[Rfam]
RNA: Mammalian CPEB3 ribozyme
RNA sequence: UUUAUUUAGGCAGGCCAUAGAAGAAGUGUUCAUGUCACAACUCCUGUCAGGUAAUACGUGUUCAUACCUGUGAAAUCUGCU
Numbered sequence: 001u002u003u004a005u006u007u008a009g010g011c012a013g014g015c016c017a018u019a020g021a022a023g024a025a026g027u028g029u030u031c032a033u034g035u036c037a038c039a040a041c042u043c044c045u046g047u048c049a050g051g052u053a054a055u056a057c058g059u060g061u062u063c064a065u066a067c068c069u070g071u072g073a074a075a076u077c078u079g080c081u
Base pairs, nucleotide, nucleotide: 009044010043013042014041019081020080022078023077024076026038027037028036048070049069050068051067052066053065